The family of this 114-nucleotide RNA sequence from Chitinophaga caeni is "SAM riboswitch aptamer (S box leader)". It scores 93 bits against the family's covariance model. Lineage of the source: Bacteria > Pseudomonadati > Chitinophagia > Chitinophagales > Chitinophaga.

[Rfam]
RNA sequence: UACUUAUCCAGAAAGGCUGAGGGACUGGCCCUUUGAAGCCUUAGCAACCAUUCCAAGCAUAGCUUGAAAUAAGGUGCUAAUUCCGGCUCCGGUAUACCCGGGGGUAGAUAAGUU
Numbered sequence: 001u002a003c004u005u006a007u008c009c010a011g012a013a014a015g016g017c018u019g020a021g022g023g024a025c026u027g028g029c030c031c032u033u034u035g036a037a038g039c040c041u042u043a044g045c046a047a048c049c050a051u052u053c054c055a056a057g058c059a060u061a062g063c064u065u066g067a068a069a070u071a072a073g074g075u076g077c078u079a080a081u082u083c084c085g086g087c088u089c090c091g092g093u094a095u096a097c098c099c100g101g102g103g104g105u106a107g108a109u110a111a112g113u114u
Base pairs, nucleotide, nucleotide: 002113003112004111005110006109007108008107013042014041015040016039017038021031022030023029025086026085027084028083043078044077045076046075048074049073050070051069052068082106087103088102089101090100091099092098
Dot-bracket structure: .(((((((....(((((...(((.[[[[)))......)))))((((.(((((...............)))..))))))...(]]]]((((((.....))))))..)))))))).